[Rfam]
RNA sequence: GAAUGAGGAGUGAGAACCUCCUCCACCGAAUGACCAAGGGUUCCUGGGCCAGGUUAAUCCGCCCAGGGUGAGUCGGGACCUAAGGCGAGGCCGACAGGCGUAGUCGAUGGACAACGGGUUGAUAUUCCCGUACCCGCGAAAGAGCGCCCAUGACGAGCCCGGUAAUGCUAAGCGCCCGAACCAGCAUUCUCCUUCGGGAGAAGCGCUGGGGAGCGCGCGACCCGAGCCGGUAGUAGUCAAGCGAUGGGGUGACGCAGGAAGGUAGCUCCGCCAGUCAGUGGUAAUACUGGUGUAAGGGUGUAGGUAGUUGGAGUAGGCAAAUCCGCUCCAAUGUUGAUCUGAGACCUGACGCAUAGCCGAUUGAGGCGAAGCAGAGUGAUCCUAUGCUGUCGAGAAAAGCCUCUAGCGAGCUCCUAGCGGCCCGUACCCUAAACCGACACAGGUGGUCAGGUAGAGAAUACCAAGGUGAU
Numbered sequence: 001g002a003a004u005g006a007g008g009a010g011u012g013a014g015a016a017c018c019u020c021c022u023c024c025a026c027c028g029a030a031u032g033a034c035c036a037a038g039g040g041u042u043c044c045u046g047g048g049c050c051a052g053g054u055u056a057a058u059c060c061g062c063c064c065a066g067g068g069u070g071a072g073u074c075g076g077g078a079c080c081u082a083a084g085g086c087g088a089g090g091c092c093g094a095c096a097g098g099c100g101u102a103g104u105c106g107a108u109g110g111a112c113a114a115c116g117g118g119u120u121g122a123u124a125u126u127c128c129c130g131u132a133c134c135c136g137c138g139a140a141a142g143a144g145c146g147c148c149c150a151u152g153a154c155g156a157g158c159c160c161g162g163u164a165a166u167g168c169u170a171a172g173c174g175c176c177c178g179a180a181c182c183a184g185c186a187u188u189c190u191c192c193u194u195c196g197g198g199a200g201a202a203g204c205g206c207u208g209g210g211g212a213g214c215g216c217g218c219g220a221c222c223c224g225a226g227c228c229g230g231u232a233g234u235a236g237u238c239a240a241g242c243g244a245u246g247g248g249g250u251g252a253c254g255c256a257g258g259a260a261g262g263u264a265g266c267u268c269c270g271c272c273a274g275u276c277a278g279u280g281g282u283a284a285u286a287c288u289g290g291u292g293u294a295a296g297g298g299u300g301u302a303g304g305u306a307g308u309u310g311g312a313g314u315a316g317g318c319a320a321a322u323c324c325g326c327u328c329c330a331a332u333g334u335u336g337a338u339c340u341g342a343g344a345c346c347u348g349a350c351g352c353a354u355a356g357c358c359g360a361u362u363g364a365g366g367c368g369a370a371g372c373a374g375a376g377u378g379a380u381c382c383u384a385u386g387c388u389g390u391c392g393a394g395a396a397a398a399g400c401c402u403c404u405a406g407c408g409a410g411c412u413c414c415u416a417g418c419g420g421c422c423c424g425u426a427c428c429c430u431a432a433a434c435c436g437a438c439a440c441a442g443g444u445g446g447u448c449a450g451g452u453a454g455a456g457a458a459u460a461c462c463a464a465g466g467u468g469a470u
Stems, first nucleotide, its partner, number of pairs: 005023006024468004032448004038428002043067006052060002074424004079110002084105003088101001090099003115224007227420003231416003235412003241407002246403005254390004260383003265377004270291006292352002296347004303340002308331007316324002354369001356367003434443002450462004

The record is a 470-nucleotide part of an RNA from Nakamurella aerolata, which matches "Bacterial large subunit ribosomal RNA" in Rfam.